[Rfam]
RNA sequence: UCUGAACCCUCGACCGUGACUCCCAGCCGCUUCGCCCUGACGCACUUCCCCGGCGCCAGGUCAGAGCGGAUGGGGAUCAGGGCCGAGGAACGGAACCCC
Numbered sequence: 001u002c003u004g005a006a007c008c009c010u011c012g013a014c015c016g017u018g019a020c021u022c023c024c025a026g027c028c029g030c031u032u033c034g035c036c037c038u039g040a041c042g043c044a045c046u047u048c049c050c051c052g053g054c055g056c057c058a059g060g061u062c063a064g065a066g067c068g069g070a071u072g073g074g075g076a077u078c079a080g081g082g083c084c085g086a087g088g089a090a091c092g093g094a095a096c097c098c099c
Base pairs, nucleotide, nucleotide: 010086011085012084014082015081018078019077021075022074023073024072025071027069028068029067030066031065032064034062036060037059038058039057041055042054043053
The record is a 99-nucleotide RNA from Microbacterium aurantiacum, which matches "mraW RNA" in Rfam.
It is annotated as a cis-regulatory element.
The match comes from Rfam's covariance-model search (70 bits).